[Rfam]
RNA: Small nucleolar RNA snoR14
Organism: Macleaya cordata
RNA sequence: GCGAGAUGAUGAUAAAAUUUAUGGUCUGUCAAUCCACUGAGUAUUAAAUCAAAUUUGAAACUAUGUUGUUUUCUGCGUGAGGUGAGGCGAGGCGACGGGCCAGGCGCCUCGC
Dot-bracket structure: ((((........................................................................................................))))
Numbered sequence: 001g002c003g004a005g006a007u008g009a010u011g012a013u014a015a016a017a018u019u020u021a022u023g024g025u026c027u028g029u030c031a032a033u034c035c036a037c038u039g040a041g042u043a044u045u046a047a048a049u050c051a052a053a054u055u056u057g058a059a060a061c062u063a064u065g066u067u068g069u070u071u072u073c074u075g076c077g078u079g080a081g082g083u084g085a086g087g088c089g090a091g092g093c094g095a096c097g098g099g100c101c102a103g104g105c106g107c108c109u110c111g112c
Stems, first nucleotide, its partner, number of pairs: 001112004